[Rfam]
mir-1285 microRNA precursor family: a 117-nucleotide RNA from Microcebus murinus. The family has 5 seed sequences and 264 matches in Rfam 15.1. The organism belongs to Microcebus, within Eukaryota.
RNA sequence: AUAGGGUCUUGCUAUGUUGCCCAGGCUGGUCUCAAACUCCUGGGCUCAAGUGAUCCUCUUGCCUCCGCCUCCCAAAGUGCUGGGAUUACAGGCCUGGGCAACAGAGUGAGACCUCAU
Numbered sequence: 001a002u003a004g005g006g007u008c009u010u011g012c013u014a015u016g017u018u019g020c021c022c023a024g025g026c027u028g029g030u031c032u033c034a035a036a037c038u039c040c041u042g043g044g045c046u047c048a049a050g051u052g053a054u055c056c057u058c059u060u061g062c063c064u065c066c067g068c069c070u071c072c073c074a075a076a077g078u079g080c081u082g083g084g085a086u087u088a089c090a091g092g093c094c095u096g097g098g099c100a101a102c103a104g105a106g107u108g109a110g111a112c113c114u115c116a117u
Stems, first nucleotide, its partner, number of pairs: 007111007019099007032092002